About this RNA:
The family of this 64-nucleotide sequence from Mytilus coruscus is "Selenocysteine insertion sequence 1". The incorporation of selenocysteine into a protein sequence is directed by an in-frame UGA codon (usually a stop codon) within the coding region of the mRNA. Selenoprotein mRNAs contain a conserved secondary structure in the 3' UTR that is required for the distinction of UGA stop from UGA selenocysteine. The selenocysteine insertion sequence (SECIS) is around 60 nt in length and adopts a hairpin structure which is sufficiently well-defined and conserved to act as a computational screen for selenoprotein genes. The base pairs follow the family's consensus structure, which is taken from published work.
RNA sequence: GACUGUCUAUGACGUUAAAACAAUAAAUCCCUGGGAUGUGUUUUAGUUGAUUUUAGCCUCUGGU
Numbered sequence: 001g002a003c004u005g006u007c008u009a010u011g012a013c014g015u016u017a018a019a020a021c022a023a024u025a026a027a028u029c030c031c032u033g034g035g036a037u038g039u040g041u042u043u044u045a046g047u048u049g050a051u052u053u054u055a056g057c058c059u060c061u062g063g064u
Stems, first nucleotide, its partner, number of pairs: 001064001003062001005060001014047009028036003